A member of the RNA family "HNH endonuclease-associated RNA and ORF (HEARO) RNA" from Bacillus pseudomycoides, 240 nucleotides long.
The family's consensus secondary structure is taken from published work.
A search with the family's covariance model found it, with a score of 100 bits.
[Rfam]
RNA sequence: GUCAACUACCCACCACUUAAACGCUAGCGCGUUUUGAAGUGGGGGCUUGUAAAAGUUCUGGUUGUCUAGCCACGGUCCUUUGUGGACUCCGUUCGUAGGUUGCAUACCCAAGAAUGAUUCCCUAGUUCUUGGCUCUAUGGUGGCUCUGUAAAAGUUCUGGUUGGGAAGGAACGGUCAACCACAAGUCUUCUUGCACAAGAAGUUGCCAACACCUACAAACAUUGGCGAAGGGAAACAAAC
Numbered sequence: 001g002u003c004a005a006c007u008a009c010c011c012a013c014c015a016c017u018u019a020a021a022c023g024c025u026a027g028c029g030c031g032u033u034u035u036g037a038a039g040u041g042g043g044g045g046c047u048u049g050u051a052a053a054a055g056u057u058c059u060g061g062u063u064g065u066c067u068a069g070c071c072a073c074g075g076u077c078c079u080u081u082g083u084g085g086a087c088u089c090c091g092u093u094c095g096u097a098g099g100u101u102g103c104a105u106a107c108c109c110a111a112g113a114a115u116g117a118u119u120c121c122c123u124a125g126u127u128c129u130u131g132g133c134u135c136u137a138u139g140g141u142g143g144c145u146c147u148g149u150a151a152a153a154g155u156u157c158u159g160g161u162u163g164g165g166a167a168g169g170a171a172c173g174g175u176c177a178a179c180c181a182c183a184a185g186u187c188u189u190c191u192u193g194c195a196c197a198a199g200a201a202g203u204u205g206c207c208a209a210c211a212c213c214u215a216c217a218a219a220c221a222u223u224g225g226c227g228a229a230g231g232g233a234a235a236c237a238a239a240c
Stems, first nucleotide, its partner, number of pairs: 001066001003064006010045002013042002016039002046055003069226004074088005091220003095216006104138002108132008116236001118234006140182004147177002152175001154172005

The source organism's lineage runs through Bacteria, Bacillati, Bacillota, Caryophanales and Bacillus. The literature on the family includes a 2009 paper in Nature by Weinberg et al., "Exceptional structured noncoding RNAs revealed by bacterial metagenome analysis".